[Rfam]
RNA sequence: GCCAAUGAUGAAUUGCCCUUUAAAUUAGGUGUAGAUCACUCCAAGCCCUGAAUAGGGAGAACCUACUUGGGGUCCUACACUAGUAUGAGAUAUAUGGGCUUUUACUGAGGU
Numbered sequence: 001g002c003c004a005a006u007g008a009u010g011a012a013u014u015g016c017c018c019u020u021u022a023a024a025u026u027a028g029g030u031g032u033a034g035a036u037c038a039c040u041c042c043a044a045g046c047c048c049u050g051a052a053u054a055g056g057g058a059g060a061a062c063c064u065a066c067u068u069g070g071g072g073u074c075c076u077a078c079a080c081u082a083g084u085a086u087g088a089g090a091u092a093u094a095u096g097g098g099c100u101u102u103u104a105c106u107g108a109g110g111u
Base pairs, nucleotide, nucleotide: 001111002110003109046057047056048055049054